[Rfam]
RNA sequence: CUCUUAUAAAGAGUAGUGGAGGGACUGGCCCUAUGAAGCUCGGCAACCUUUCAUGUUUAACAUGAAUUGGUGCUAAAUCCUGCAAAACAUUAGUUUUGAAAGAUAAGAG
Numbered sequence: 001c002u003c004u005u006a007u008a009a010a011g012a013g014u015a016g017u018g019g020a021g022g023g024a025c026u027g028g029c030c031c032u033a034u035g036a037a038g039c040u041c042g043g044c045a046a047c048c049u050u051u052c053a054u055g056u057u058u059a060a061c062a063u064g065a066a067u068u069g070g071u072g073c074u075a076a077a078u079c080c081u082g083c084a085a086a087a088c089a090u091u092a093g094u095u096u097u098g099a100a101a102g103a104u105a106a107g108a109g
Stems, first nucleotide, its partner, number of pairs: 001109007013041001015040003021031003025082001027080002042074004047070002050066004078101001083098006
RNA: SAM riboswitch aptamer (S box leader)
Organism: Heyndrickxia shackletonii